Shown here is a 129-nucleotide RNA sequence from Cryptotermes secundus, a member of the family "U11 spliceosomal RNA". Taxonomically the source falls in Cryptotermes (Eukaryota, Eumetazoa, Bilateria, Kalotermitidae). It is annotated as a spliceosomal small nuclear RNA. A search with the family's covariance model found it, with a score of 90 bits.
RNA sequence: AAAAAGGGUGUUUGCUGCUUUGAUAGCACGUAGGUCGAAAGAUCUAUGGGGUAUGGCGAUCAAGACAUACCCAACACACAAUUUUUGUAUUUGAGGGGCAGUUAGCUGUCUAUGUGCACUGGCGCCCCC
Numbered sequence: 001a002a003a004a005a006g007g008g009u010g011u012u013u014g015c016u017g018c019u020u021u022g023a024u025a026g027c028a029c030g031u032a033g034g035u036c037g038a039a040a041g042a043u044c045u046a047u048g049g050g051g052u053a054u055g056g057c058g059a060u061c062a063a064g065a066c067a068u069a070c071c072c073a074a075c076a077c078a079c080a081a082u083u084u085u086u087g088u089a090u091u092u093g094a095g096g097g098g099c100a101g102u103u104a105g106c107u108g109u110c111u112a113u114g115u116g117c118a119c120u121g122g123c124g125c126c127c128c129c
Stems, first nucleotide, its partner, number of pairs: 008077005013028005029048008049072007096127004101123005107118003110114001